Plastid-psbA-1 3UTR RNA: a 128-nucleotide RNA sequence from Schoepfia jasminodora. Lineage of the source: Eukaryota > Magnoliopsida > eudicotyledons > Gunneridae > Schoepfia. The literature on the family includes a 2023 paper in Plant Commun by Richter et al., "Retrograde signaling in plants: A critical review focusing on the GUN pathway and beyond". Plastid psbA-1 is a non-coding RNA (ncRNA) present in plastids. It was identified in inverted repeat sequences in the 3 prime untranslate region (3UTR) of photosystem II quinone-binding protein (psbA).

[Rfam]
RNA sequence: GUGGAAGCUCUGUCUACAAAUGGGUAAGACUUUCGUCUUAGUGUAUAUGAGUUCUUGAAUAAAUAAAAGUAAGUAAAGGAGCAAUAACCAAUUUCUUAUUCUAUCAAGAAGGUUGAUAUUGCUCCUUU
Numbered sequence: 001g002u003g004g005a006a007g008c009u010c011u012g013u014c015u016a017c018a019a020a021u022g023g024g025u026a027a028g029a030c031u032u033u034c035g036u037c038u039u040a041g042u043g044u045a046u047a048u049g050a051g052u053u054c055u056u057g058a059a060u061a062a063a064u065a066a067a068a069g070u071a072a073g074u075a076a077a078g079g080a081g082c083a084a085u086a087a088c089c090a091a092u093u094u095c096u097u098a099u100u101c102u103a104u105c106a107a108g109a110a111g112g113u114u115g116a117u118a119u120u121g122c123u124c125c126u127u128u
Stems, first nucleotide, its partner, number of pairs: 009024005075128012090113001093110005